[Rfam]
RNA sequence: AUCAUCAGUAGCGGUUAAUACUAUCUCAAGAUAAUAUUAAUUACGUUAAAUUAUAGAAACCUACGGUUCAUUUAUUGUUAUCUUUAUGACGGGAGAAUGAUAUCGUCUUUCUUUAUGGAAGAUGUAUUGUUUUUAUCGUUAGUUAAUACUGAGAUGAUGAUUUCUGAAACCAUUACCAUAACCCAUAGCUGAAUGAAUUUUGACUACCUCCAAACAAGGUUAGGCACAAUAUUCAUUUCGUUUCCGGUUUCUUAGAUCAAAUUUACUAUUUAAGAAAGGUAUUUUAUUUCGGUAAAUUAUCCUUUCUUGUUUAUGAUGAAGGUUCCAUAACAAAAAUAAGUGGAAUUAGAUGCAUGUCUUUUCAGAGGGUUGUAUAAUGCAAUCUGAGAGUUUGAAAGUCUUCUGUGCCUCUUCGUCAUGAUAGAACAGAC
Numbered sequence: 001a002u003c004a005u006c007a008g009u010a011g012c013g014g015u016u017a018a019u020a021c022u023a024u025c026u027c028a029a030g031a032u033a034a035u036a037u038u039a040a041u042u043a044c045g046u047u048a049a050a051u052u053a054u055a056g057a058a059a060c061c062u063a064c065g066g067u068u069c070a071u072u073u074a075u076u077g078u079u080a081u082c083u084u085u086a087u088g089a090c091g092g093g094a095g096a097a098u099g100a101u102a103u104c105g106u107c108u109u110u111c112u113u114u115a116u117g118g119a120a121g122a123u124g125u126a127u128u129g130u131u132u133u134u135a136u137c138g139u140u141a142g143u144u145a146a147u148a149c150u151g152a153g154a155u156g157a158u159g160a161u162u163u164c165u166g167a168a169a170c171c172a173u174u175a176c177c178a179u180a181a182c183c184c185a186u187a188g189c190u191g192a193a194u195g196a197a198u199u200u201u202g203a204c205u206a207c208c209u210c211c212a213a214a215c216a217a218g219g220u221u222a223g224g225c226a227c228a229a230u231a232u233u234c235a236u237u238u239c240g241u242u243u244c245c246g247g248u249u250u251c252u253u254a255g256a257u258c259a260a261a262u263u264u265a266c267u268a269u270u271u272a273a274g275a276a277a278g279g280u281a282u283u284u285u286a287u288u289u290c291g292g293u294a295a296a297u298u299a300u301c302c303u304u305u306c307u308u309g310u311u312u313a314u315g316a317u318g319a320a321g322g323u324u325c326c327a328u329a330a331c332a333a334a335a336a337u338a339a340g341u342g343g344a345a346u347u348a349g350a351u352g353c354a355u356g357u358c359u360u361u362u363c364a365g366a367g368g369g370u371u372g373u374a375u376a377a378u379g380c381a382a383u384c385u386g387a388g389a390g391u392u393u394g395a396a397a398g399u400c401u402u403c404u405g406u407g408c409c410u411c412u413u414c415g416u417c418a419u420g421a422u423a424g425a426a427c428a429g430a431c
Stems, first nucleotide, its partner, number of pairs: 009048005014041007022033004055252007065171004069166002074161011088140005094134001095132009108121005141150003191238007200229003204223002206220003266424005271418001273416001276413003281351004286346006355407003361396006367385007
Dot-bracket structure: ........((((((((((((.((((....)))).)))))))..)))))......(((((((...((((((...(((((((((((...(((((.((((((((((....(((((....)))))..))))))))).).)))))(((....))))))))))))))...)).))))...................(((((((..(((.(((((.........))).))...)))..))))))).......))))))).............((((((.(..(((..((((.((((((.................................................)))))).))))...(((...(((((((((((((.....))))))).....))))))........)))...)))..).).))))).......
The record is a 431-nucleotide RNA sequence from Naumovozyma dairenensis, which matches "Small nucleolar RNA snR37" in Rfam. It is annotated as an H/ACA-box small nucleolar RNA.